Annotation
Rfam assigns this 69-nucleotide RNA sequence from Flavobacterium bizetiae to the family "DUF805 RNA". Its Rfam clan is "DUF805 clan". Lineage of the source: Bacteria > Bacteroidota > Flavobacteriia > Flavobacteriales > Flavobacterium.
[Rfam]
RNA sequence: GAAAGGUGGAGUUCAGAAACCACUUAAAUAAACGGGGAGUUACUGAAAAUCCUAAAGAGUAAGAAUUCA
Dot-bracket structure: .....((((..........))))............(((....[[.....))).........]]......